[Rfam]
RNA sequence: UGCAAGGGCACUCUGUGUUACACAUAAUUGAUAUGUUAAUCACAAUUUGUUACCUUGCUACAUUAAAUCUACCCAACCCUAUUCCGCGCAAUUUAUUUUAUUGCCUGGUCAUAUUGGUAGGUACAUUAC
Numbered sequence: 001u002g003c004a005a006g007g008g009c010a011c012u013c014u015g016u017g018u019u020a021c022a023c024a025u026a027a028u029u030g031a032u033a034u035g036u037u038a039a040u041c042a043c044a045a046u047u048u049g050u051u052a053c054c055u056u057g058c059u060a061c062a063u064u065a066a067a068u069c070u071a072c073c074c075a076a077c078c079c080u081a082u083u084c085c086g087c088g089c090a091a092u093u094u095a096u097u098u099u100a101u102u103g104c105c106u107g108g109u110c111a112u113a114u115u116g117g118u119a120g121g122u123a124c125a126u127u128a129c
Stems, first nucleotide, its partner, number of pairs: 002058006010050002014044003017040004022036002064128003067122003071118003075115002084108003088104002091101002

A member of the RNA family "Small nucleolar RNA psi18S-841/snoR66" from Leptidea sinapis, 129 nucleotides long.
About the family: psi18S-841 is a member of the H/ACA class of snoRNA. This family is responsible for guiding the modification of uridine 841 in Drosophila 18S rRNA to pseudouridine.
The family is grouped with related families in Rfam's "SNORA28 clan".